The record is a 126-nucleotide RNA sequence from Aquilegia coerulea, which matches "Small nucleolar RNA snoR111" in Rfam. For this family Rfam cites "Experimental RNomics: identification of 140 candidates for small non-messenger RNAs in the plant Arabidopsis thaliana" (Marker et al., Curr Biol, 2002). Lineage of the source: Eukaryota > Viridiplantae > Streptophyta > Streptophytina > Aquilegia. The base pairs follow the family's consensus structure, which was predicted with WAR.
RNA sequence: UUAGAAAUGUGGAGACUAAAUAUGAAAUGUCUUUAUGUUGUUAAUACAGAGGAAUAUAAAUAUGGCAAGAUAUCGUUUCAGUUGCCCUUUUAUUUGAUUGGUGAUUUGAUUGUUGCUUGUCUACAU
Numbered sequence: 001u002u003a004g005a006a007a008u009g010u011g012g013a014g015a016c017u018a019a020a021u022a023u024g025a026a027a028u029g030u031c032u033u034u035a036u037g038u039u040g041u042u043a044a045u046a047c048a049g050a051g052g053a054a055u056a057u058a059a060a061u062a063u064g065g066c067a068a069g070a071u072a073u074c075g076u077u078u079c080a081g082u083u084g085c086c087c088u089u090u091u092a093u094u095u096g097a098u099u100g101g102u103g104a105u106u107u108g109a110u111u112g113u114u115g116c117u118u119g120u121c122u123a124c125a126u
Base pairs, nucleotide, nucleotide: 006039007038008037009036010035011034012033013032014031015030016029064122065121067118068117069116072110073109074108075107081105082104083103084102085101086100089097090096